[Rfam]
Nucleotides: 161
Base pairs, nucleotide, nucleotide: 013118014117015116017047018046019045020044021043023042024041025040026039027038049089050088051087053086055083056082057081059079060078061077062075063074091114092113093112094110095109096108098106099105135159136158138156142153143152144151145150
Number, partner (000 for none) and nucleotide at each position: 001000a002000u003000a004000c005000u006000u007000a008000c009000u010000u011000g012000g013118a014117u015116g016000g017047g018046g019045u020044c021043g022000a023042u024041g025040g026039g027038c028000g029000a030000u031000c032000a033000g034000u035000u036000a037000g038027g039026c040025c041024c042023a043021u044020g045019g046018c047017c048000a049089a050088g051087g052000u053086u054000g055083g056082u057081g058000a059079c060078c061077u062075c063074c064000a065000u066000u067000g068000c069000a070000c071000u072000u073000u074063g075062g076000a077061g078060g079059g080000g081057u082056g083055c084000u085000c086053g087051c088050c089049u090000a091114a092113g093112g094110u095109c096108u097000g098106c099105c100000u101000a102000a103000a104000u105099g106098g107000u108096g109095g110094a111000g112093c113092c114091u115000a116015c117014g118013u119000a120000a121000u122000a123000a124000u125000u126000u127000g128000u129000g130000c131000u132000a133000g134000c135159g136158g137000g138156g139000g140000c141000u142153u143152g144151c145150g146000u147000u148000c149000g150145c151144g152143u153142a154000g155000c156138c157000a158136c159135c160000a161000c

A member of the RNA family "U1 spliceosomal RNA" from Sesamum indicum, 161 nucleotides long. The base pairs follow the family's consensus structure, which is taken from published work. Its family is annotated with U1 snRNP, mRNA 5'-splice site recognition and pre-mRNA 5'-splice site binding in the Gene Ontology. Lineage of the source: Eukaryota > Streptophyta > Mesangiospermae > Pedaliaceae > Sesamum.